Small nucleolar RNA snoR27: a 90-nucleotide RNA sequence from Arachis hypogaea. Rfam classes the family as a C/D-box small nucleolar RNA. Clan: snR68 clan. On this family, see Brown et al., RNA 2001: "Multiple snoRNA gene clusters from Arabidopsis". NCBI's taxonomy places the organism under Eukaryota, Magnoliopsida, Mesangiospermae, Fabales, Arachis.
RNA sequence: UCUGGAUCGGUGAUGUUAUUUUUUAAACUGCGUUAUCUAUCUGAAACUUCCUACAGGAAUUGAAGAUAACAUAACAUGCUGAGAUCCAUC
Numbered sequence: 001u002c003u004g005g006a007u008c009g010g011u012g013a014u015g016u017u018a019u020u021u022u023u024u025a026a027a028c029u030g031c032g033u034u035a036u037c038u039a040u041c042u043g044a045a046a047c048u049u050c051c052u053a054c055a056g057g058a059a060u061u062g063a064a065g066a067u068a069a070c071a072u073a074a075c076a077u078g079c080u081g082a083g084a085u086c087c088a089u090c
Base pairs, nucleotide, nucleotide: 003088004087005086006085007084
A search with the family's covariance model found it, with a score of 80 bits.